[Rfam]
MIR7993 microRNA precursor family: a 141-nucleotide sequence from Anisodus acutangulus. Taxonomically the source falls in Anisodus (Eukaryota, Tracheophyta, Gunneridae, Solanales). Gene Ontology terms of the family: RISC complex and miRNA-mediated post-transcriptional gene silencing.
RNA sequence: UUCAGUUAAUCACAUAAAAUAUGUCAUCCCAUUUAAUUAUACGCAUCAACCUCGAGUAGAAAAUGGCUAGGGUUUUAUGACUUAUUGAGGUGGAUGCGUAUAAUUAAAAGAGAUGACAUAUUUUAUGUGGUUAACUUAAGG
Numbered sequence: 001u002u003c004a005g006u007u008a009a010u011c012a013c014a015u016a017a018a019a020u021a022u023g024u025c026a027u028c029c030c031a032u033u034u035a036a037u038u039a040u041a042c043g044c045a046u047c048a049a050c051c052u053c054g055a056g057u058a059g060a061a062a063a064u065g066g067c068u069a070g071g072g073u074u075u076u077a078u079g080a081c082u083u084a085u086u087g088a089g090g091u092g093g094a095u096g097c098g099u100a101u102a103a104u105u106a107a108a109a110g111a112g113a114u115g116a117c118a119u120a121u122u123u124u125a126u127g128u129g130g131u132u133a134a135c136u137u138a139a140g141g
Stems, first nucleotide, its partner, number of pairs: 001139002004136022028112001030110001032108016049091006